[Rfam]
RNA: mir-172 microRNA precursor family
Organism: Actinidia chinensis
RNA sequence: UUGAUUGCCGAUGCAGCAUCAUCAAGAUUCCCACCUUCAAGGUAUGGAUAAUACCAUAUAUAUUCAUGUUAUAUAUACCAUUGACUAUAUAAGUGUGAAUCUUGAUGAUGCCGCACCCACGAACAA
Number, nucleotide and partner (000 for none) at each position: 001u000002u000003g000004a000005u000006u000007g000008c000009c000010g117011a000012u115013g114014c113015a000016g111017c110018a109019u108020c107021a106022u105023c104024a103025a102026g101027a100028u099029u098030c097031c000032c095033a094034c000035c000036u000037u000038c000039a000040a000041g000042g000043u000044a000045u000046g000047g000048a000049u000050a000051a000052u000053a000054c000055c000056a000057u000058a000059u000060a000061u000062a000063u000064u000065c000066a000067u000068g000069u000070u000071a000072u000073a000074u000075a000076u000077a000078c000079c000080a000081u000082u000083g000084a000085c000086u000087a000088u000089a000090u000091a000092a000093g000094u033095g032096u000097g030098a029099a028100u027101c026102u025103u024104g023105a022106u021107g020108a019109u018110g017111c016112c000113g014114c013115a012116c000117c010118c000119a000120c000121g000122a000123a000124c000125a000126a000